[Rfam]
RNA sequence: UCACAAAGCAUUGCACCCAGAAUCUGGUUUACCAGACAUUGUACCUGGAGCUUUUUCUUUUACAUUAAAACCUUAU
Numbered sequence: 001u002c003a004c005a006a007a008g009c010a011u012u013g014c015a016c017c018c019a020g021a022a023u024c025u026g027g028u029u030u031a032c033c034a035g036a037c038a039u040u041g042u043a044c045c046u047g048g049a050g051c052u053u054u055u056u057c058u059u060u061u062a063c064a065u066u067a068a069a070a071c072c073u074u075a076u
Base pairs, nucleotide, nucleotide: 005054006053007052008051009050017048018047019046020045023036024035025034026033
Dot-bracket structure: ....(((((.......((((..((((......))))........)))).)))))......................
This 76-nucleotide sequence from Tetraodon nigroviridis belongs to the Rfam family "U1A polyadenylation inhibition element (PIE)". NCBI's taxonomy places the organism under Eukaryota, Opisthokonta, Gnathostomata, Eupercaria, Tetraodon. This family represents the U1A polyadenylation inhibition element (PIE).